sul1 RNA: a 53-nucleotide RNA from Paracoccus onubensis. The family's RNA type in Rfam is riboswitch. The organism belongs to Paracoccus, within Bacteria. Pairs were carried over by alignment from the consensus structure, which is taken from published work.
RNA sequence: ACCGGACUCGAUAGAUCGAGUGGCUCAUCCGGGAGCCUAUCCCCCGGCCAUCC
Numbered sequence: 001a002c003c004g005g006a007c008u009c010g011a012u013a014g015a016u017c018g019a020g021u022g023g024c025u026c027a028u029c030c031g032g033g034a035g036c037c038u039a040u041c042c043c044c045c046g047g048c049c050a051u052c053c
Stems, first nucleotide, its partner, number of pairs: 006021006029047005